[Rfam]
RNA sequence: GUUACUCUUCAGGGCGGGGCGUAAUUCCCCACCGGCGGUAAAGCCCGCGAGCUAUUUAUAGCAUGAUUCGGUGAAAUUCCGAGGCCGACAGUUAAAGUCUGGAUGAAAGAAGAGAGGU
Numbered sequence: 001g002u003u004a005c006u007c008u009u010c011a012g013g014g015c016g017g018g019g020c021g022u023a024a025u026u027c028c029c030c031a032c033c034g035g036c037g038g039u040a041a042a043g044c045c046c047g048c049g050a051g052c053u054a055u056u057u058a059u060a061g062c063a064u065g066a067u068u069c070g071g072u073g074a075a076a077u078u079c080c081g082a083g084g085c086c087g088a089c090a091g092u093u094a095a096a097g098u099c100u101g102g103a104u105g106a107a108a109g110a111a112g113a114g115a116g117g118u
Stems, first nucleotide, its partner, number of pairs: 003116001005114006017029003031098002033087002035048004043085002053061001067083005089101003
Dot-bracket structure: ..(.((((((......(((.......))).[[((((((....[[))))....(.......).....(((((.......)))))]])).(((.....]]))).......)))))).)..

The family of this 118-nucleotide RNA from Hathewaya histolytica is "FMN riboswitch aptamer (RFN element)". Taxonomically the source falls in Hathewaya (Bacteria, Bacillati, Bacillota, Clostridia). The base pairs follow the family's consensus structure, which is taken from published work.